A member of the RNA family "MIR5565 microRNA precursor family" from Miscanthus lutarioriparius, 109 nucleotides long. Pairs were carried over by alignment from the consensus structure, which was predicted with RNAalifold. A search with the family's covariance model found it, with a score of 88 bits. Its family is annotated with RISC complex and miRNA-mediated post-transcriptional gene silencing in the Gene Ontology.
[Rfam]
RNA sequence: GUAUACAAAUCCACCUCAAUACAUGUGGUUUGAGAGGGAUUGAGGUGGAAUUUAGUUUAAGUUCCACCUCAAUCCCUCCCAAACCAUGUGGAUUGGGAUGAAUUUGUAU
Numbered sequence: 001g002u003a004u005a006c007a008a009a010u011c012c013a014c015c016u017c018a019a020u021a022c023a024u025g026u027g028g029u030u031u032g033a034g035a036g037g038g039a040u041u042g043a044g045g046u047g048g049a050a051u052u053u054a055g056u057u058u059a060a061g062u063u064c065c066a067c068c069u070c071a072a073u074c075c076c077u078c079c080c081a082a083a084c085c086a087u088g089u090g091g092a093u094u095g096g097g098a099u100g101a102a103u104u105u106g107u108a109u
Stems, first nucleotide, its partner, number of pairs: 004108007012100002016096005022090011035077009045067003